[Rfam]
RNA: Na+ riboswitch aptamer (DUF1646)
Organism: Thermoanaerobacterium saccharolyticum
RNA sequence: GGUUGAGCAAGUUUUCUUGCUUCAAGAUCUUCGGCUUCCAGGGUGGGAAGCU
Numbered sequence: 001g002g003u004u005g006a007g008c009a010a011g012u013u014u015u016c017u018u019g020c021u022u023c024a025a026g027a028u029c030u031u032c033g034g035c036u037u038c039c040a041g042g043g044u045g046g047g048a049a050g051c052u
Stems, first nucleotide, its partner, number of pairs: 003025003006021006033052007